[Rfam]
RNA sequence: CUGCAUACCAGUAGACCUUAUCUGGUUCUCCCAAUAGCCAGACGAGGGGGAUGGUGCAUGCUACAGGAACCUGGGGUUGCUGUAGGCUGUGAUCAGCCUCUCGGUGGCUGAUUGAGCUGUGAUACUCCAACAGAU
Number, nucleotide and partner (000 for none) at each position: 001c000002u000003g061004c060005a059006u058007a000008c056009c000010a000011g000012u000013a000014g000015a000016c047017c046018u045019u044020a000021u042022c041023u040024g039025g000026u000027u000028c000029u000030c000031c000032c000033a000034a000035u000036a000037g000038c000039c024040a023041g022042a021043c000044g019045a018046g017047g016048g000049g000050g000051a000052u000053g000054g000055u000056g008057c000058a006059u005060g004061c003062u000063a000064c000065a000066g000067g000068a000069a000070c000071c000072u000073g128074g127075g126076g125077u000078u124079g000080c000081u121082g120083u119084a000085g000086g000087c000088u000089g000090u000091g000092a000093u111094c110095a109096g108097c107098c000099u000100c000101u000102c000103g000104g000105u000106g000107g097108c096109u095110g094111a093112u000113u000114g000115a000116g000117c000118u000119g083120u082121g081122a000123u000124a078125c076126u075127c074128c073129a000130a000131c000132a000133g000134a000135u000
RNA: Small nucleolar RNA SNORA58
Organism: Chordeiles acutipennis